RNA sequence: CUCUUAUCGAGAGUGGUGGAGGGACUGGCCCUGUGAAGCCCGGCAACCUAACUUUGUUAAGGUGCUAAAUCCAGCGGUGUAUAUAACCGAAAGAUGAGUA
Numbered sequence: 001c002u003c004u005u006a007u008c009g010a011g012a013g014u015g016g017u018g019g020a021g022g023g024a025c026u027g028g029c030c031c032u033g034u035g036a037a038g039c040c041c042g043g044c045a046a047c048c049u050a051a052c053u054u055u056g057u058u059a060a061g062g063u064g065c066u067a068a069a070u071c072c073a074g075c076g077g078u079g080u081a082u083a084u085a086a087c088c089g090a091a092a093g094a095u096g097a098g099u100a
Stems, first nucleotide, its partner, number of pairs: 003098006013041001015040003021031003025074004042066004047062002049059004070092001075089004
SAM riboswitch aptamer (S box leader): a 100-nucleotide RNA from Peptostreptococcus stomatis. Lineage of the source: Bacteria > Bacillati > Bacillota > Clostridia > Peptostreptococcus stomatis. It scores 84 bits against the family's covariance model. The family has 457 seed sequences and 9,625 matches in Rfam 15.1.